[Rfam]
RNA sequence: GUGGAAGCGGGAAAGGUUGUAUCGCUUCUGUAAACGAGUAUCAAAAGCGUAUAGCUUUUCCCCUUUUUAA
Numbered sequence: 001g002u003g004g005a006a007g008c009g010g011g012a013a014a015g016g017u018u019g020u021a022u023c024g025c026u027u028c029u030g031u032a033a034a035c036g037a038g039u040a041u042c043a044a045a046a047g048c049g050u051a052u053a054g055c056u057u058u059u060c061c062c063c064u065u066u067u068u069a070a
Base pairs, nucleotide, nucleotide: 003068004067005066006065007064009062010061011060013058014057017054018053019052020051021050025047026046027045029043030042

Rfam assigns this 70-nucleotide RNA sequence from Cimex lectularius to the family "mir-965 microRNA precursor family". The base pairs follow the family's consensus structure, which was predicted with RNAalifold. The source organism's lineage runs through Eukaryota, Insecta, Heteroptera, Neoheteroptera and Cimex.